[Rfam]
RNA sequence: CUAGGCUAGCAGUGAUGCUAGACGAAGAUUGAUAAGAAGUCAGCAGAGGGCAUAGUACCUACAAUGGGGGGAAGGCC
Numbered sequence: 001c002u003a004g005g006c007u008a009g010c011a012g013u014g015a016u017g018c019u020a021g022a023c024g025a026a027g028a029u030u031g032a033u034a035a036g037a038a039g040u041c042a043g044c045a046g047a048g049g050g051c052a053u054a055g056u057a058c059c060u061a062c063a064a065u066g067g068g069g070g071g072a073a074g075g076c077c
Base pairs, nucleotide, nucleotide: 001027002026004023006021007020008019009018010017011016040047041046049077050076051075058070059069060068062066

Annotation
The family of this 77-nucleotide sequence from Vibrio navarrensis is "Group II catalytic intron D1-D4-1". Lineage of the source: Bacteria > Pseudomonadati > Pseudomonadota > Vibrionaceae > Vibrio. The match comes from Rfam's covariance-model search (65 bits). Rfam describes the family as follows. Group II introns are found in rRNA, tRNA and mRNA of organelles in fungi, plants and protists, and also in mRNA in bacteria.